Rfam assigns this 52-nucleotide sequence from Rhinolophus ferrumequinum to the family "mir-1302 microRNA precursor family".
RNA sequence: UUUUUAGUAUAAGUACGUCUCAUGCAACAUUUGGGACAUAGUUAUACUACAC
Dot-bracket structure: .....(((((((.((..(((((........).))))..)).)))))))....

The base pairs follow the family's consensus structure, which was predicted with WAR. On this family, see Morin et al., Genome Res 2008: "Application of massively parallel sequencing to microRNA profiling and discovery in human embryonic stem cells". Taxonomically the source falls in Rhinolophus (Eukaryota, Sarcopterygii, Theria, Rhinolophoidea).